[Rfam]
This 68-nucleotide RNA sequence from Kitasatospora viridis belongs to the Rfam family "ASdes TB sRNA". It is annotated as a small RNA. For this family Rfam cites "Identification of small RNAs in Mycobacterium tuberculosis" (Arnvig and Young, Mol Microbiol, 2009). The match comes from Rfam's covariance-model search (63 bits). Rfam 15.1 lists 1,192 matches to the family in 825 species. Lineage of the source: Bacteria > Actinomycetes > Kitasatosporales > Streptomycetaceae > Kitasatospora. Pairs were carried over by alignment from the consensus structure, which is taken from published work.
RNA sequence: AGUUCGACCGGGUCCACGGCACGCAUGACGUGCAGGUAGUCGCGCAGUGCGAUGGAGUGCCGGCCUUC
Number, nucleotide and partner (000 for none) at each position: 001a000002g000003u000004u063005c062006g061007a000008c059009c000010g000011g000012g029013u028014c000015c027016a026017c000018g024019g000020c000021a000022c000023g000024c018025a000026u016027g015028a013029c012030g000031u000032g000033c000034a000035g000036g000037u054038a053039g000040u052041c051042g050043c049044g048045c000046a000047g000048u044049g043050c042051g041052a040053u038054g037055g000056a000057g000058u000059g008060c000061c006062g005063g004064c000065c000066u000067u000068c000